[Rfam]
RNA sequence: GACCGUUGAUGCGAAAGGCUUGGUCAGGGGAGUGUUUCGCGGAGGUCUAUUUAAGGUUGAGUAUUGAACCAAAACCUGAAUAGGCGCAGCGACAGCGCUGAAAGAAAAUACUUGCA
Number, nucleotide and partner (000 for none) at each position: 001g047002a046003c045004c044005g000006u000007u000008g000009a000010u000011g040012c039013g038014a037015a036016a035017g000018g033019c032020u031021u030022g000023g000024u079025c078026a077027g076028g000029g000030g021031a020032g019033u018034g000035u016036u015037u014038c013039g012040c011041g000042g000043a000044g004045g003046u002047c001048u000049a000050u000051u000052u000053a000054a000055g000056g000057u000058u000059g000060a000061g111062u110063a109064u000065u000066g000067a000068a000069c000070c000071a000072a000073a000074a000075c000076c027077u026078g025079a024080a000081u000082a000083g099084g098085c097086g096087c000088a000089g000090c000091g000092a000093c000094a000095g000096c086097g085098c084099u083100g000101a000102a000103a000104g000105a000106a000107a000108a000109u063110a062111c061112u000113u000114g000115c000116a000
The record is a 116-nucleotide RNA from Caproicibacter fermentans, which matches "drum RNA" in Rfam. It is annotated as a small RNA. It scores 77 bits against the family's covariance model. Firmicutes, Bacteroidetes (1 example), Proteobacteria (2 examples), Spirochaetes (2 examples).